Shown here is a 125-nucleotide RNA from Oceanobacillus piezotolerans, a member of the family "ylbH leader".
The literature on the family includes a 2004 paper in Proc Natl Acad Sci U S A by Barrick et al., "New RNA motifs suggest an expanded scope for riboswitches in bacterial genetic control".
The family's RNA type in Rfam is cis-regulatory leader.
Its family is annotated with regulation of gene expression in the Gene Ontology.
A search with the family's covariance model found it, with a score of 93 bits.
The organism belongs to Oceanobacillus, within Bacteria.

[Rfam]
RNA sequence: AGAAAAAAACCUGCAGAAUAAUUAAUUCUGCAGGUCCCUUUGUUUUUUCAAAGAAAAACAAAUAGGCAAAGGGAGAGGAGAAACCGGAAGAAGAACUUAUGGGGAAGUUUAAGUCUUCUCCGUGU
Numbered sequence: 001a002g003a004a005a006a007a008a009a010c011c012u013g014c015a016g017a018a019u020a021a022u023u024a025a026u027u028c029u030g031c032a033g034g035u036c037c038c039u040u041u042g043u044u045u046u047u048u049c050a051a052a053g054a055a056a057a058a059c060a061a062a063u064a065g066g067c068a069a070a071g072g073g074a075g076a077g078g079a080g081a082a083a084c085c086g087g088a089a090g091a092a093g094a095a096c097u098u099a100u101g102g103g104g105a106a107g108u109u110u111a112a113g114u115c116u117u118c119u120c121c122g123u124g125u
Base pairs, nucleotide, nucleotide: 011033012032013031014030015029016028017027018026019025036073037072038071039070040069044061045060047058048057085122086121087120088119090118091117092116093115095114096113097112098111099110